This 191-nucleotide sequence from Ornithorhynchus anatinus belongs to the Rfam family "U2 spliceosomal RNA". Its Rfam clan is "U2 clan". Rfam classes the family as a spliceosomal small nuclear RNA. It scores 142 bits against the family's covariance model. Rfam's curators write: U2 is a small nuclear RNA (snRNA) component of the spliceosome (involved in pre-mRNA splicing). The base pairs follow the family's consensus structure, which is taken from published work.
RNA sequence: AUCGCUUCUCGGCCUUUUGGCUAAGAUCAAGUGUAGCAUUUGUUCUUAUCAGUUUAGUAUUUGAUGCAUUCUCUAUCCGAGGAUAAUGUGUUAAAUGGAAUUUUGGAGCCAGGAAGUGGAAUAGGGGCUUGCUCCGUACACUCCAUGCAGUGACCUGAUAUUGCAGUAUUUCUAAGAGCGUUGCACUUCUU
Numbered sequence: 001a002u003c004g005c006u007u008c009u010c011g012g013c014c015u016u017u018u019g020g021c022u023a024a025g026a027u028c029a030a031g032u033g034u035a036g037c038a039u040u041u042g043u044u045c046u047u048a049u050c051a052g053u054u055u056a057g058u059a060u061u062u063g064a065u066g067c068a069u070u071c072u073c074u075a076u077c078c079g080a081g082g083a084u085a086a087u088g089u090g091u092u093a094a095a096u097g098g099a100a101u102u103u104u105g106g107a108g109c110c111a112g113g114a115a116g117u118g119g120a121a122u123a124g125g126g127g128c129u130u131g132c133u134c135c136g137u138a139c140a141c142u143c144c145a146u147g148c149a150g151u152g153a154c155c156u157g158a159u160a161u162u163g164c165a166g167u168a169u170u171u172c173u174a175a176g177a178g179c180g181u182u183g184c185a186c187u188u189c190u191u
Base pairs, nucleotide, nucleotide: 007026008025009024011022012021013020014019047066048065049064050063051062052061068084069083070082071081072080073079112144113143114142119137124135125134126133127132147184148183149182150181151180152179154176156174157173